[Rfam]
RNA sequence: CGACCGCUCUCUCCGGAGAGCCAAGGCCACACGGACAGCCGGGUCGAAUGCCGA
Numbered sequence: 001c002g003a004c005c006g007c008u009c010u011c012u013c014c015g016g017a018g019a020g021c022c023a024a025g026g027c028c029a030c031a032c033g034g035a036c037a038g039c040c041g042g043g044u045c046g047a048a049u050g051c052c053g054a
Stems, first nucleotide, its partner, number of pairs: 001046005006021006
Streptococcus sRNA SpF59 (ldcC RNA): a 54-nucleotide RNA. On this family, see Mann et al., PLoS Pathog 2012: "Control of virulence by small RNAs in Streptococcus pneumoniae". Rfam's curators put it in the seed alignment.